[Rfam]
RNA sequence: UUCCGACUUAUAACUCGGAAUUUUAAAAUUCCGAGUUAUAACUCGGAAUUUUAAAAUUCCGAGAUAUAAGUCGGAAUUUUGAUGUAAAAUUCCGAGUUAUAAGUCGGAAUUUUGAUGUAAAAUUCCGAGUUAUAACUCGGAAUUUUAAAA
Numbered sequence: 001u002u003c004c005g006a007c008u009u010a011u012a013a014c015u016c017g018g019a020a021u022u023u024u025a026a027a028a029u030u031c032c033g034a035g036u037u038a039u040a041a042c043u044c045g046g047a048a049u050u051u052u053a054a055a056a057u058u059c060c061g062a063g064a065u066a067u068a069a070g071u072c073g074g075a076a077u078u079u080u081g082a083u084g085u086a087a088a089a090u091u092c093c094g095a096g097u098u099a100u101a102a103g104u105c106g107g108a109a110u111u112u113u114g115a116u117g118u119a120a121a122a123u124u125c126c127g128a129g130u131u132a133u134a135a136c137u138c139g140g141a142a143u144u145u146u147a148a149a150a
Stems, first nucleotide, its partner, number of pairs: 003074006014063003018059006025052004030047006089144001091142001108123001110121003124141007
Small Cajal body specific RNA 1: a 150-nucleotide sequence from Phaedon cochleariae.
NCBI's taxonomy places the organism under Eukaryota, Bilateria, Dicondylia, Pterygota, Phaedon.
For this family Rfam cites "Cajal body-specific small nuclear RNAs: a novel class of 2'-O-methylation and pseudouridylation guide RNAs" (Darzacq et al., EMBO J, 2002).
Rfam links the family to the GO terms RNA processing, Cajal body and nucleolus.
scaRNAs are a specific class of small nuclear RNAs which localise to the Cajal bodies and guide the modification of RNA polymerase II transcribed spliceosomal RNAs U1, U2, U4, U5 and U12.
By type it is a small Cajal body RNA.